[Rfam]
Shown here is a 97-nucleotide RNA from Actinobacillus succinogenes, a member of the family "Aggregatibacter sRNA 22". Lineage of the source: Bacteria > Gammaproteobacteria > Pasteurellales > Actinobacillus > Actinobacillus succinogenes. The literature on the family includes a 2017 paper in DNA Res by Oogai et al., "Small RNA repertoires and their intraspecies variation in Aggregatibacter actinomycetemcomitans". The family's RNA type in Rfam is small RNA. The family has 7 seed sequences and 101 matches in Rfam 15.1.
RNA sequence: GUGCGGUCACAAAAAGCAUCAGUUUUUGAACGUUGGCUUUGCCAACGGCCCUUUAGGGGAGCAAUCCUGAAAAGGGUUGCGAAUAAAAAACGAAGUU
Numbered sequence: 001g002u003g004c005g006g007u008c009a010c011a012a013a014a015a016g017c018a019u020c021a022g023u024u025u026u027u028g029a030a031c032g033u034u035g036g037c038u039u040u041g042c043c044a045a046c047g048g049c050c051c052u053u054u055a056g057g058g059g060a061g062c063a064a065u066c067c068u069g070a071a072a073a074g075g076g077u078u079g080c081g082a083a084u085a086a087a088a089a090a091c092g093a094a095g096u097u
Stems, first nucleotide, its partner, number of pairs: 010028006031047007051057002061080008084093001